[Rfam]
RNA sequence: UGCUGCAACAUCCCCGUGGGUUGGGAGGCAAAACCUCAGUGAAUCCACUGCAGCC
Numbered sequence: 001u002g003c004u005g006c007a008a009c010a011u012c013c014c015c016g017u018g019g020g021u022u023g024g025g026a027g028g029c030a031a032a033a034c035c036u037c038a039g040u041g042a043a044u045c046c047a048c049u050g051c052a053g054c055c
Base pairs, nucleotide, nucleotide: 002054003053004052005051006050007049013041014039016048017047018046019045020044021043022042023040025037026036027035028034
RNA: nadA riboswitch